Rfam assigns this 552-nucleotide part of an RNA from Candidatus Undinarchaeum marinum to the family "Archaeal large subunit ribosomal RNA". The source organism's lineage runs through Archaea, Nanobdellati, Candidatus Undinarchaeota, Candidatus Undinarchaeales and Candidatus Undinarchaeum. It scores 2696 bits against the family's covariance model.
[Rfam]
RNA sequence: GUAUAACGCCAAUUGGUGAAUGACUAGGCUUGAGAGCUGAUGAAGGACGUGGCAAGCUGCGAUAUGUCCCGGCGAGGUGCAUGCAACCUUAGAACCGGGAAUUUCCGAAUUAGACCUCUUUAUGUUCAUUAAUAAGGGACAUAACUCCUUCGGGAGAGGGAACGCGGGGAAUUGAAGCAUCUUAGUACCCGCAGGAAAAGAAAGCAAACGCGAUGCCGUUAGUAAAGGCGAUCGAAAGCGGCAUAGGGCAAACUGAAUCUGCAUCCGCGAGGAUGUAGAGAUGUGGUGUUUGGCCCGGCAAUGGUCUUGUAACUAAUCAGAAGUCCCUUGGAAAGGGGCGCCAUAGAGGGUGAUAGCCCCGUACGAGUAAGAUUACAAGAACUGGCCGGUGUCCAGAGUAACGUUGGUCGGAUUUCCAGCGUGAAUUUGGGAGUUAACGACUCCUAACCCUAAAUACUUCUCAAGACCGAUAGUGUACUAGUACCGUGAGGGAAAGUUGAAAAGUAUCUCUAGCGAGAGGUGAAAAGACCUGAAACCAAUUGGCUAUAGUGC
Number, nucleotide and partner (000 for none) at each position: 001g000002u000003a000004u000005a000006a000007c000008g544009c543010c542011a541012a540013u539014u538015g537016g536017u000018g000019a000020a000021u000022g530023a497024c496025u000026a000027g468028g467029c465030u464031u463032g462033a461034g460035a458036g457037c000038u000039g000040a000041u000042g000043a000044a000045g106046g105047a104048c061049g060050u059051g000052g000053c000054a000055a000056g000057c000058u000059g050060c049061g048062a000063u000064a000065u000066g000067u100068c099069c098070c097071g096072g095073c000074g000075a000076g088077g087078u086079g000080c000081a000082u000083g000084c000085a000086a078087c077088c076089u000090u000091a000092g000093a000094a000095c072096c071097g070098g069099g068100a067101a000102u000103u000104u047105c046106c045107g000108a000109a000110u000111u000112a119113g118114a000115c000116c000117u000118c113119u112120u000121u000122a000123u000124g000125u000126u000127c000128a000129u000130u000131a000132a000133u000134a000135a000136g000137g000138g000139a000140c000141a000142u000143a000144a000145c156146u155147c154148c153149u000150u000151c000152g000153g148154g147155a146156g145157a000158g000159g000160g000161a000162a000163c194164g192165c191166g190167g189168g188169g000170a000171a000172u000173u000174g181175a180176a000177g000178c000179a000180u175181c174182u000183u000184a000185g000186u000187a000188c168189c167190c166191g165192c164193a000194g163195g000196a000197a000198a000199a000200g000201a000202a000203a000204g211205c210206a000207a000208a000209c000210g205211c204212g000213a000214u000215g242216c241217c240218g239219u238220u000221a000222g000223u000224a000225a000226a232227g000228g000229c000230g000231a000232u226233c000234g000235a000236a000237a000238g219239c218240g217241g216242c215243a000244u000245a451246g450247g449248g448249c000250a000251a000252a000253c286254u285255g284256a000257a000258u000259c000260u000261g000262c000263a274264u273265c272266c271267g000268c000269g000270a000271g266272g265273a264274u263275g000276u000277a000278g000279a000280g000281a000282u000283g000284u255285g254286g253287u000288g000289u000290u000291u000292g000293g000294c000295c389296c388297g387298g386299c000300a000301a000302u000303g382304g000305u380306c379307u000308u000309g000310u000311a000312a000313c000314u000315a000316a000317u366318c365319a000320g000321a000322a000323g339324u000325c338326c337327c336328u335329u000330g000331g000332a000333a000334a000335g328336g327337g326338g325339c323340g000341c000342c346343a000344u000345a000346g342347a000348g360349g359350g358351u000352g000353a000354u000355a000356g000357c000358c350359c349360c348361g000362u000363a000364c000365g318366a317367g000368u000369a000370a000371g000372a000373u000374u000375a000376c000377a000378a000379g306380a305381a000382c303383u000384g000385g000386c298387c297388g296389g295390u000391g000392u000393c000394c000395a000396g000397a000398g000399u000400a000401a422402c421403g420404u419405u418406g417407g416408u000409c000410g000411g000412a000413u000414u000415u000416c407417c406418a405419g404420c403421g402422u401423g000424a000425a000426u000427u000428u000429g445430g444431g443432a442433g441434u000435u000436a000437a000438c000439g000440a000441c433442u432443c431444c430445u429446a000447a000448c248449c247450c246451u245452a000453a000454a000455u000456a000457c036458u035459u000460c034461u033462c032463a031464a030465g029466a000467c028468c027469g000470a000471u000472a000473g000474u000475g000476u000477a000478c000479u000480a000481g000482u000483a000484c491485c490486g000487u000488g000489a000490g485491g484492g000493a000494a000495a000496g024497u023498u000499g000500a000501a000502a000503a000504g000505u000506a000507u000508c000509u000510c000511u000512a000513g000514c000515g000516a000517g000518a000519g000520g000521u000522g000523a000524a000525a000526a000527g000528a000529c000530c022531u000532g000533a000534a000535a000536c016537c015538a014539a013540u012541u011542g010543g009544c008545u000546a000547u000548a000549g000550u000551g000552c000